[Rfam]
Shown here is a 97-nucleotide RNA from Clostridium sp. FS41, a member of the family "Purine riboswitch aptamer". Riboswitches are metabolite binding domains within certain messenger RNAs that serve as precision sensors for their corresponding targets. Lineage of the source: Bacteria > Bacillota > Clostridia > Eubacteriales > Clostridium. It scores 53 bits against the family's covariance model.
Nucleotides: 097
Stems, first nucleotide, its partner, number of pairs: 020081006030045005055073005
Number, partner (000 for none) and nucleotide at each position: 001000u002000u003000a004000a005000u006000a007000a008000a009000u010000c011000u012000u013000u014000u015000g016000c017000c018000a019000u020081u021080a022079u023078g024077u025076a026000u027000a028000u029000c030045c031044u032043g033042g034041g035000g036000a037000u038000u039000g040000g041034c042033c043032c044031a045030g046000a047000g048000u049000c050000u051000c052000u053000a054000c055073c056072a057071a058070c059069u060000a061000c062000c063000g064000a065000a066000a067000a068000g069059a070058g071057u072056u073055g074000a075000c076025u077024a078023c079022a080021u081020a082000u083000c084000u085000u086000a087000u088000g089000u090000a091000g092000u093000c094000a095000g096000c097000u